Background
This 112-nucleotide sequence belongs to the Rfam family "skipping-rope RNA". Rfam's curators put it in the seed alignment.
RNA sequence: GGCUUUAGAGGUGGGAACAGCCUCCCCACACACCACCAUUGCUGCGGCAGCGGUGGUACAGUAACCCUGAAUUGGGUGAAGAGAUUCGGGUGUGGGCAACCCGGCUAAGGCC
Number, nucleotide and partner (000 for none) at each position: 001g112002g111003c110004u109005u108006u107007a106008g105009a000010g000011g029012u028013g027014g026015g025016a000017a000018c000019a000020g097021c096022c095023u094024c000025c015026c014027c013028a012029c011030a000031c081032a057033c056034c055035a054036c053037c052038a000039u000040u000041g000042c000043u000044g000045c000046g000047g000048c000049a000050g000051c000052g037053g036054u035055g034056g033057u032058a000059c000060a000061g000062u000063a000064a000065c000066c000067c000068u000069g000070a000071a000072u000073u000074g000075g000076g000077u000078g000079a000080a000081g031082a000083g000084a000085u000086u104087c103088g102089g101090g100091u000092g000093u000094g023095g022096g021097c020098a000099a000100c090101c089102c088103g087104g086105c008106u007107a006108a005109g004110g003111c002112c001